The family of this 222-nucleotide sequence from Eleutherodactylus coqui is "Small nucleolar RNA SNORA73 family". Pairs were carried over by alignment from the consensus structure, which is taken from published work. Gene Ontology terms of the family: RNA processing and nucleolus.
RNA sequence: CCAACGUGGAUAUCCUGUGGGGUUGCUCCCACAGGCUCUGUCCUUGUGGCGUAUGGGAGCGUAGCGUCUCACGGCGCAGUGACGUACAGUCCCGUUCCACGACGUUGGAGAUCAUGUCAGUCCCCGGCCUCCAGGCUGGUGCGGACGGCGUCCUGUAUAUUCCUACAACUUCUCUGAGCUCUCGGGCGGUGACUGAGGAGACAAACCAUGCAGGAUACAUGA
Number, nucleotide and partner (000 for none) at each position: 001c108002c107003a106004a105005c104006g103007u102008g043009g042010a041011u040012a039013u000014c035015c034016u033017g000018u000019g028020g027021g026022g000023u000024u000025g000026c021027u020028c019029c000030c000031a000032c000033a016034g015035g014036c000037u000038c000039u012040g011041u010042c009043c008044u000045u000046g100047u099048g098049g097050c000051g000052u000053a000054u000055g093056g092057g091058a090059g087060c000061g085062u084063a000064g080065c079066g000067u000068c000069u000070c000071a000072c000073g000074g000075c000076g000077c000078a000079g065080u064081g000082a000083c000084g062085u061086a000087c059088a000089g000090u058091c057092c056093c055094g000095u000096u000097c049098c048099a047100c046101g000102a007103c006104g005105u004106u003107g002108g001109a000110g000111a000112u000113c000114a000115u000116g000117u000118c000119a000120g000121u000122c000123c000124c000125c000126g000127g000128c000129c000130u000131c000132c000133a000134g000135g000136c000137u000138g000139g000140u000141g000142c000143g000144g000145a000146c000147g000148g000149c000150g000151u000152c214153c213154u212155g211156u210157a209158u208159a000160u000161u000162c000163c000164u000165a000166c000167a000168a000169c200170u199171u198172c197173u196174c195175u000176g000177a000178g187179c186180u185181c000182u000183c000184g000185g180186g179187c178188g000189g000190u000191g000192a000193c000194u000195g174196a173197g172198g171199a170200g169201a000202c000203a000204a000205a000206c000207c000208a158209u157210g156211c155212a154213g153214g152215a000216u000217a000218c000219a000220u000221g000222a000
Rfam's curators write: U17 (SNORA73A and SNORA73B) also known as E1 belongs to the H/ACA class of small nucleolar RNAs (snoRNAs). Vertebrate U17 is intron-encoded and ranges in length from 200-230 nucleotides, longer than most snoRNAs. It is one of the most abundant snoRNAs in human cells and is essential for the cleavage of pre-rRNA within the 5' external transcribed spacer (ETS). The literature on the family includes a 2002 paper in J Mol Evol by Cervelli et al., "Comparative Structure Analysis of Vertebrate U17 Small Nucleolar RNA (snoRNA)".